RNA sequence: UUACUUGGAGGGGAGACACCAGGAUCACCCAGGUGGUUUUCCCAGGGUGAGGCUCACCCCUUGCACUCUGGGUGUGCUGACACCUGCGGUUUCCCCAGAUGUGGGAAACUCGACUGCAUAAUUUGUGGAAGUGGAGAAAUGCACUCGCGCUCUCCCCUG
Numbered sequence: 001u002u003a004c005u006u007g008g009a010g011g012g013g014a015g016a017c018a019c020c021a022g023g024a025u026c027a028c029c030c031a032g033g034u035g036g037u038u039u040u041c042c043c044a045g046g047g048u049g050a051g052g053c054u055c056a057c058c059c060c061u062u063g064c065a066c067u068c069u070g071g072g073u074g075u076g077c078u079g080a081c082a083c084c085u086g087c088g089g090u091u092u093c094c095c096c097a098g099a100u101g102u103g104g105g106a107a108a109c110u111c112g113a114c115u116g117c118a119u120a121a122u123u124u125g126u127g128g129a130a131g132u133g134g135a136g137a138a139a140u141g142c143a144c145u146c147g148c149g150c151u152c153u154c155c156c157c158u159g
Base pairs, nucleotide, nucleotide: 008117009115010114011043012042013041014040015039016038018037019036020035021034044085045084046083049081051078052077053076055074056073057072058071059070087112088111089110090108091107092106094104095103133157134156136154138153141150142149
Rfam assigns this 159-nucleotide sequence from Alligator sinensis to the family "U1 spliceosomal RNA". Taxonomically the source falls in Alligator (Eukaryota, Deuterostomia, Amniota, Alligatoridae).